The family of this 80-nucleotide RNA sequence from Astyanax mexicanus is "mir-27 microRNA precursor family".
Gene Ontology terms of the family: RISC complex and miRNA-mediated post-transcriptional gene silencing.
Rfam 15.1 lists 1,440 matches to the family in 645 species.
A reference for the family is Yao et al. (2008), "MicroRNA profile of Marek's disease virus-transformed T-cell line MSB-1: predominance of virus-encoded microRNAs", J Virol.
The base pairs follow the family's consensus structure, which was predicted with RNAalifold.
NCBI's taxonomy places the organism under Eukaryota, Teleostomi, Actinopteri, Otomorpha, Astyanax.

RNA sequence: UAAAGGCUCAGAGCUUAGCUAAUUGGUGAGCACUGGUCCCUUCAAUGUUCUGUUCACAGUGGCUAAGUUCAGCGUCUGCA
Numbered sequence: 001u002a003a004a005g006g007c008u009c010a011g012a013g014c015u016u017a018g019c020u021a022a023u024u025g026g027u028g029a030g031c032a033c034u035g036g037u038c039c040c041u042u043c044a045a046u047g048u049u050c051u052g053u054u055c056a057c058a059g060u061g062g063c064u065a066a067g068u069u070c071a072g073c074g075u076c077u078g079c080a
Stems, first nucleotide, its partner, number of pairs: 011070010026057007